RNA sequence: CCGGGCGACACGCCGAAUCCUGCCCCGCCCGGUGAACAACAAACCUCAGGGCGGGAGCGGGGGAACCAACCUUCGGGCGUCGAUCACAGACGUCCUCGGGGUGAAGUCGCGUAGCGCGACCGGGUAAAUCCCAGCCCGAACCCGACAGCUAACUUCGCAGGCGUGGGGAGGGGCAUCA
Number, nucleotide and partner (000 for none) at each position: 001c000002c000003g000004g000005g000006c000007g000008a000009c000010a000011c163012g162013c161014c160015g000016a000017a000018u056019c055020c054021u053022g052023c051024c050025c049026c000027g000028c000029c000030c000031g000032g000033u000034g000035a000036a000037c000038a000039a000040c000041a000042a000043a000044c000045c000046u000047c000048a000049g025050g024051g023052c022053g021054g020055g019056a018057g158058c157059g156060g155061g154062g153063g000064a000065a000066c000067c098068a000069a000070c000071c000072u000073u000074c000075g000076g000077g000078c000079g000080u000081c000082g000083a000084u000085c000086a000087c000088a000089g000090a000091c000092g000093u000094c000095c000096u000097c000098g067099g143100g142101g141102u000103g000104a000105a000106g000107u119108c118109g117110c116111g000112u000113a000114g000115c000116g110117c109118g108119a107120c000121c000122g137123g136124g135125u134126a000127a000128a000129u000130c000131c000132c000133a000134g125135c124136c123137c122138g000139a000140a000141c101142c100143c099144g000145a000146c000147a000148g000149c000150u000151a000152a000153c062154u061155u060156c059157g058158c057159a000160g014161g013162c012163g011164u000165g000166g000167g000168g000169a000170g000171g000172g000173g000174c000175a000176u000177c000178a000
RNA: c-di-AMP riboswitch aptamer (ydaO/yuaA leader)
Organism: Parafrankia soli